[Rfam]
RNA sequence: CGGUGAUGUCUCCUCUCCGGUAACAAUGGAGGCACUCGGCUAUGCUGUGGGUUUAAAAACCUUAGCAUUAAUUGGCGAAAGUAUAGCGUGAGGAAGGGUUAGAUGCCCU
Numbered sequence: 001c002g003g004u005g006a007u008g009u010c011u012c013c014u015c016u017c018c019g020g021u022a023a024c025a026a027u028g029g030a031g032g033c034a035c036u037c038g039g040c041u042a043u044g045c046u047g048u049g050g051g052u053u054u055a056a057a058a059a060c061c062u063u064a065g066c067a068u069u070a071a072u073u074g075g076c077g078a079a080a081g082u083a084u085a086g087c088g089u090g091a092g093g094a095a096g097g098g099u100u101a102g103a104u105g106c107c108c109u
Stems, first nucleotide, its partner, number of pairs: 001019003007034007035092004039087008049062005065076001066074002095109005
Shown here is a 109-nucleotide RNA sequence from Ammoniphilus oxalaticus, a member of the family "epsC RNA". The family's RNA type in Rfam is cis-regulatory element. The match comes from Rfam's covariance-model search (99 bits).